[Rfam]
RNA sequence: AGCGUAUUUCGCCCAGACAGAGCUCGACCGCCCGUUCAAGAAAUGAUCGCCUUCAUCGAGGCGCAUCGCGCCGUCCACGGGGGCGAGCCGAUCUGCAGGGUGCUGCCGAUCGCCCCG
Numbered sequence: 001a002g003c004g005u006a007u008u009u010c011g012c013c014c015a016g017a018c019a020g021a022g023c024u025c026g027a028c029c030g031c032c033c034g035u036u037c038a039a040g041a042a043a044u045g046a047u048c049g050c051c052u053u054c055a056u057c058g059a060g061g062c063g064c065a066u067c068g069c070g071c072c073g074u075c076c077a078c079g080g081g082g083g084c085g086a087g088c089c090g091a092u093c094u095g096c097a098g099g100g101u102g103c104u105g106c107c108g109a110u111c112g113c114c115c116c117g
Base pairs, nucleotide, nucleotide: 016032018030020028078117079116080115081114082113089112090111092109093108095106096105097104098103
RNA: ALIL pseudoknot